[Rfam]
RNA sequence: CGAGUCGGCAGGGCGGCCGCGGCGGCCGGGAACGGCCGUCGAGGAAAGUCCGGACUCCGCAGGGCAGGGUGGUUGCUAGCGGCAACCCGGGGUGACCCGCGGGACAGUGCCACAGAAAGCAAACCGCCUGGCCAACAGGCCAGGUAAGGGUGAAACGGUGGUGUAAGAGACCACCAGCGCCCCGGGUGACCGGGGCGGCUCGGCAAACCCCACCCGGAGCAAGGCCAAGAGGCGGACCCGAGAGGGUCCUGCUGCGCAGGCGUUCGAGGGCGGCCCGCCCGAGCCUGCGGGUAGGCCGCACGAGCCUGGCGGCGACGCCAGGCCCAGAUGGAUGGCCGCCACCCGGGCGACCGGGGACAGAAUCCGGCUUACGGUCCGACUCGCCCG
Number, nucleotide and partner (000 for none) at each position: 001c383002g382003a381004g380005u379006c378007g377008g376009c000010a000011g372012g340013g339014c338015g337016g336017c335018c334019g000020c041021g040022g039023c038024g037025g036026c035027c034028g033029g000030g000031a000032a000033c028034g027035g026036c025037c024038g023039u022040c021041g020042a000043g000044g000045a000046a370047a369048g368049u000050c367051c366052g365053g364054a363055c219056u218057c217058c216059g000060c000061a000062g276063g275064g274065c273066a000067g215068g214069g213070u212071g211072g086073u085074u084075g083076c082077u000078a000079g000080c000081g000082g076083c075084a074085a073086c072087c101088c099089g098090g097091g096092g000093u000094g000095a000096c091097c090098c089099g088100c000101g087102g210103g209104a000105c000106a000107g208108u207109g204110c203111c202112a000113c000114a000115g000116a000117a000118a000119g000120c000121a000122a000123a000124c149125c148126g145127c144128c143129u142130g141131g140132c139133c138134a000135a000136c000137a000138g133139g132140c131141c130142a129143g128144g127145u126146a000147a000148g125149g124150g000151u000152g000153a000154a000155a000156c000157g175158g174159u173160g172161g171162u170163g000164u000165a000166a000167g000168a000169g000170a162171c161172c160173a159174c158175c157176a000177g199178c197179g196180c195181c194182c193183c192184g191185g190186g000187u000188g000189a000190c185191c184192g183193g182194g181195g180196c179197g178198g000199c177200u000201c000202g111203g110204c109205a000206a000207a108208c107209c103210c102211c071212a070213c069214c068215c067216g058217g057218a056219g055220c000221a000222a000223g297224g296225c295226c294227a000228a000229g000230a000231g000232g000233c000234g000235g000236a000237c000238c000239c000240g000241a000242g000243a000244g000245g000246g000247u000248c000249c000250u000251g000252c000253u000254g000255c000256g288257c287258a286259g285260g284261c283262g000263u000264u000265c000266g000267a000268g280269g279270g278271c277272g000273g065274c064275c063276c062277g271278c270279c269280c268281g000282a000283g261284c260285c259286u258287g257288c256289g000290g000291g000292u000293a000294g226295g225296c224297c223298g000299c000300a000301c000302g000303a000304g323305c322306c321307u320308g319309g318310c317311g316312g000313c000314g000315a000316c311317g310318c309319c308320a307321g306322g305323c304324c000325c000326a000327g000328a000329u000330g000331g000332a000333u000334g018335g017336c016337c015338g014339c013340c012341a000342c000343c000344c000345g000346g000347g000348c000349g000350a000351c000352c000353g000354g000355g000356g000357a000358c000359a000360g000361a000362a000363u054364c053365c052366g051367g050368c048369u047370u046371a000372c011373g000374g000375u000376c008377c007378g006379a005380c004381u003382c002383g001384c000385c000386c000387g000
RNA: Bacterial RNase P class A